[Rfam]
RNA sequence: GGAGGGAUCCCUUAGUGGCCAAAGGAUCAGACUGUAAAUCUGACGUCAUAGACUUCGAAGGUUCGAAUCCUUCUCCCUCCA
Number, nucleotide and partner (000 for none) at each position: 001g080002g079003a078004g077005g076006g075007a074008u000009c000010c025011c024012u023013u022014a000015g000016u000017g000018g000019c000020c000021a000022a013023a012024g011025g010026a000027u043028c042029a041030g040031a039032c000033u000034g000035u000036a000037a000038a000039u031040c030041u029042g028043a027044c000045g000046u000047c000048a000049u000050a000051g000052a000053c000054u000055u000056c000057g073058a072059a071060g070061g069062u000063u000064c000065g000066a000067a000068u000069c061070c060071u059072u058073c057074u007075c006076c005077c004078u003079c002080c001081a000

Description: Rfam assigns this 81-nucleotide RNA sequence from Pseudomonas aeruginosa to the family "tRNA". Taxonomically the source falls in Pseudomonas (Bacteria, Pseudomonadati, Pseudomonadota, Pseudomonadales). The family's consensus secondary structure is taken from published work. The sequence is in the family's curated seed alignment. From the family's description: Transfer RNA (tRNA) molecules are approximately 80 nucleotides in length. Their secondary structure includes four short double-helical elements and three loops (D, anti-codon, and T loops). Further hydrogen bonds mediate the characteristic L-shaped molecular structure. tRNAs have two regions of fundamental functional importance: the anti-codon, which is responsible for specific mRNA codon recognition, and the 3' end, to which the tRNAs corresponding amino acid is attached (by aminoacyl-tRNA synthetases). tRNAs cope with the degeneracy of the genetic code in two manners: having more than one tRNA (with a specific anti-codon) for a particular amino acid; and 'wobble' base-pairing, i.e. permitting non-standard base-pairing at the 3rd anti-codon position. It is annotated as a transfer RNA.